[Rfam]
RNA sequence: UAGUCCUUUAACUACAGUCCCGUGAGGCUGAGAAGGAGUUCGGAGCUAGAUAGACAGAGGCAAUCUGUCUAUCUGUAUAUGCCUGUAACCUCUCAUGUCUAUGGACUUGAGAGGUUUUUUCUU
Numbered sequence: 001u002a003g004u005c006c007u008u009u010a011a012c013u014a015c016a017g018u019c020c021c022g023u024g025a026g027g028c029u030g031a032g033a034a035g036g037a038g039u040u041c042g043g044a045g046c047u048a049g050a051u052a053g054a055c056a057g058a059g060g061c062a063a064u065c066u067g068u069c070u071a072u073c074u075g076u077a078u079a080u081g082c083c084u085g086u087a088a089c090c091u092c093u094c095a096u097g098u099c100u101a102u103g104g105a106c107u108u109g110a111g112a113g114g115u116u117u118u119u120u121c122u123u
Base pairs, nucleotide, nucleotide: 004037005036006035007034008033009032015030016029017028018027019026047075048074049073050072051071052070053069054068055067056066057065058064085118087116088115089114090113091112092111093110094109095108097106098105

The family of this 123-nucleotide sequence from Halalkalibacter suaedae is "PyrR binding site". Rfam classes the family as a cis-regulatory element. Rfam describes the family as follows. This family represents the PyrR binding site and terminator structure. This RNA structure is found upstream of a variety of genes involved in pyrimidine biosynthesis and transport. The alignment also includes a portion of the antiterminator structure. The base pairs follow the family's consensus structure, which is taken from published work. It scores 65 bits against the family's covariance model. The organism belongs to Halalkalibacter, within Bacteria.